[Rfam]
RNA sequence: CUGCUGCUGGAUGCGCUUGAUGGUUGCCCCCUUGGGGCCCACCACCAGCCCCACUACGCGGUAG
Numbered sequence: 001c002u003g004c005u006g007c008u009g010g011a012u013g014c015g016c017u018u019g020a021u022g023g024u025u026g027c028c029c030c031c032u033u034g035g036g037g038c039c040c041a042c043c044a045c046c047a048g049c050c051c052c053a054c055u056a057c058g059c060g061g062u063a064g
Stems, first nucleotide, its partner, number of pairs: 001064007008056003013051001015049003019045001021044004026039001028037003